The record is a 393-nucleotide sequence from Stackebrandtia endophytica, which matches "Bacterial RNase P class A" in Rfam. By type it is a ribozyme. The source organism's lineage runs through Bacteria, Bacillati, Actinomycetes, Glycomycetaceae and Stackebrandtia. The base pairs follow the family's consensus structure, which is taken from published work.
RNA sequence: CGAGUCAGCCAGGUGGUCGCGGCGGGGGCAUUGCCCACGUCGAGGAACGUCCGGACUCCGCAGGGCAGGGUGGUUGUUAACGGCAACCCGGGGUGACCCGCGGGACAGUGCCACAGAAAACAGACCGCCCACUUCAUGUGGGUAAGGGUGAAACGGUGGUGUAAGAGACCACCAGCGUCCUCGGUGACGGGGACGGCUAGGUAAACCCCACCCGGAGCAAGGUCAAGAGGAACCCUCGGGUUCUGCGCGAGCGUUCGAGGACUGCCCGUCCGAGCUCGCGGGUAGACCGCUGGAGCGUGUCGGCGACGGCAUGCCUAGAUGGAUGGCCACCGGCCGGGGCAAUGCGGUAACGCGCCCCGGCAACAGGAUCCGGCGUACCGGCUGACUCGUCCG
Numbered sequence: 001c002g003a004g005u006c007a008g009c010c011a012g013g014u015g016g017u018c019g020c021g022g023c024g025g026g027g028g029c030a031u032u033g034c035c036c037a038c039g040u041c042g043a044g045g046a047a048c049g050u051c052c053g054g055a056c057u058c059c060g061c062a063g064g065g066c067a068g069g070g071u072g073g074u075u076g077u078u079a080a081c082g083g084c085a086a087c088c089c090g091g092g093g094u095g096a097c098c099c100g101c102g103g104g105a106c107a108g109u110g111c112c113a114c115a116g117a118a119a120a121c122a123g124a125c126c127g128c129c130c131a132c133u134u135c136a137u138g139u140g141g142g143u144a145a146g147g148g149u150g151a152a153a154c155g156g157u158g159g160u161g162u163a164a165g166a167g168a169c170c171a172c173c174a175g176c177g178u179c180c181u182c183g184g185u186g187a188c189g190g191g192g193a194c195g196g197c198u199a200g201g202u203a204a205a206c207c208c209c210a211c212c213c214g215g216a217g218c219a220a221g222g223u224c225a226a227g228a229g230g231a232a233c234c235c236u237c238g239g240g241u242u243c244u245g246c247g248c249g250a251g252c253g254u255u256c257g258a259g260g261a262c263u264g265c266c267c268g269u270c271c272g273a274g275c276u277c278g279c280g281g282g283u284a285g286a287c288c289g290c291u292g293g294a295g296c297g298u299g300u301c302g303g304c305g306a307c308g309g310c311a312u313g314c315c316u317a318g319a320u321g322g323a324u325g326g327c328c329a330c331c332g333g334c335c336g337g338g339g340c341a342a343u344g345c346g347g348u349a350a351c352g353c354g355c356c357c358c359g360g361c362a363a364c365a366g367g368a369u370c371c372g373g374c375g376u377a378c379c380g381g382c383u384g385a386c387u388c389g390u391c392c393g
Stems, first nucleotide, its partner, number of pairs: 001389010012331007020042005026036003047376003051373005056217004063267004068213005073087005088102001089100004103208002108206002110202003125147002127143006155173006175197001176195008221288004247279006259271004295314008